[Rfam]
RNA: Enterobacteria sRNA STnc130
Organism: Klebsiella michiganensis
RNA sequence: UACAACGAGAUUAACCUUUAAUAGUUUUUUAUCCUGUUUAAUCCAAAGGGAGUAUCUUCGUAAUCGCGAAGGCGAUUAUUGCCCGGUAUCAAGAAGGGGGUAAAAAAAAAGCGCCCGCAGGCGCUUUUGAGAAGAG
Numbered sequence: 001u002a003c004a005a006c007g008a009g010a011u012u013a014a015c016c017u018u019u020a021a022u023a024g025u026u027u028u029u030u031a032u033c034c035u036g037u038u039u040a041a042u043c044c045a046a047a048g049g050g051a052g053u054a055u056c057u058u059c060g061u062a063a064u065c066g067c068g069a070a071g072g073c074g075a076u077u078a079u080u081g082c083c084c085g086g087u088a089u090c091a092a093g094a095a096g097g098g099g100g101u102a103a104a105a106a107a108a109a110a111g112c113g114c115c116c117g118c119a120g121g122c123g124c125u126u127u128u129g130a131g132a133a134g135a136g
Stems, first nucleotide, its partner, number of pairs: 059068002108127008